Nucleotides: 185
Base pairs, nucleotide, nucleotide: 007179008178009177010176011175017083018082019081020080021079022078024076025075033068034067035066036065037064038063039062040061087113088112089111090110091109092108093107094106095105096104097103114140115139117137118136119135120134121133122132123131124130142170143169144168145167146166147165148164149163150162151161
Number, partner (000 for none) and nucleotide at each position: 001000u002000a003000a004000u005000a006000u007179a008178g009177u010176a011175g012000a013000g014000g015000u016000u017083g018082c019081a020080c021079c022078g023000g024076u025075u026000a027000u028000u029000a030000g031000u032000a033068g034067u035066a036065c037064a038063u039062a040061g041000g042000a043000u044000g045000u046000c047000c048000c049000g050000g051000a052000g053000a054000c055000a056000g057000a058000a059000g060000a061040u062039u063038g064037u065036g066035u067034a068033c069000a070000a071000a072000a073000g074000g075025a076024a077000g078022u079021g080020g081019u082018g083017c084000c085000g086000a087113a088112g089111g090110g091109u092108g093107g094106a095105u096104a097103u098000c099000c100000g101000g102000a103097a104096u105095a106094u107093u108092u109091a110090c111089u112088c113087u114140g115139g116000g117137c118136g119135u120134a121133u122132g123131g124130u125000u126000a127000a128000u129000a130124g131123u132122c133121a134120u135119a136118u137117g138000a139115c140114u141000g142170u143169c144168a145167u146166c147165a148164a149163u150162u151161g152000a153000u154000g155000a156000a157000g158000a159000g160000c161151u162150a163149a164148u165147u166146g167145a168144u169143g170142g171000a172000g173000g174000g175011c176010u177009a178008c179007u180000u181000a182000u183000a184000a185000g